A member of the RNA family "Lysine riboswitch aptamer" from Peribacillus cavernae, 179 nucleotides long. The organism belongs to Peribacillus, within Bacteria.
[Rfam]
RNA sequence: AGUGCUGAUAGAGGUGCGAGAUUCAUCAGUAGGGACUUGGAGAAGUGUGAGCUUCAACGAAAGGUCUUGAAAGGGGAAAUCGCCGAAGCCGGACAGGACUCAUAACCUGUUAUCGGCUGGUCUGCCACCUAAUAAGUGGCUGAUUGUCAAGAUUGUUAUCUUGGAGAGCUAUCUCGCUG
Numbered sequence: 001a002g003u004g005c006u007g008a009u010a011g012a013g014g015u016g017c018g019a020g021a022u023u024c025a026u027c028a029g030u031a032g033g034g035a036c037u038u039g040g041a042g043a044a045g046u047g048u049g050a051g052c053u054u055c056a057a058c059g060a061a062a063g064g065u066c067u068u069g070a071a072a073g074g075g076g077a078a079a080u081c082g083c084c085g086a087a088g089c090c091g092g093a094c095a096g097g098a099c100u101c102a103u104a105a106c107c108u109g110u111u112a113u114c115g116g117c118u119g120g121u122c123u124g125c126c127a128c129c130u131a132a133u134a135a136g137u138g139g140c141u142g143a144u145u146g147u148c149a150a151g152a153u154u155g156u157u158a159u160c161u162u163g164g165a166g167a168g169c170u171a172u173c174u175c176g177c178u179g
Stems, first nucleotide, its partner, number of pairs: 007173005016083004022077003032068007087118006093110005119145004124140005147164007